The record is a 51-nucleotide RNA sequence from Synechococcales cyanobacterium M55_K2018_004, which matches "Nitrogen stress-induced RNA 1" in Rfam. By type it is a small RNA. Lineage of the source: Bacteria > Bacillati > Cyanobacteriota > Cyanophyceae > Synechococcales. The pairing is the family consensus, mapped onto this sequence.

[Rfam]
RNA sequence: UGGUAGAUGCACCCUGAUCAAAUCCCUGGCCAACGGCUAGGGAUUUUUUUU
Numbered sequence: 001u002g003g004u005a006g007a008u009g010c011a012c013c014c015u016g017a018u019c020a021a022a023u024c025c026c027u028g029g030c031c032a033a034c035g036g037c038u039a040g041g042g043a044u045u046u047u048u049u050u051u
Base pairs, nucleotide, nucleotide: 002013003012004011023043024042025041026040027039028038029037030036031035